[Rfam]
RNA sequence: AAGGAGGAAACUGAAAAUCCUAUAAUAAAUAGAGUAGGUA
Number, nucleotide and partner (000 for none) at each position: 001a000002a021003g020004g019005a018006g000007g000008a000009a000010a039011c038012u037013g000014a000015a000016a000017a000018u005019c004020c003021u002022a000023u000024a000025a000026u000027a000028a000029a000030u000031a000032g000033a000034g000035u000036a000037g012038g011039u010040a000
RNA: DUF805b RNA
Organism: Aequorivita sublithincola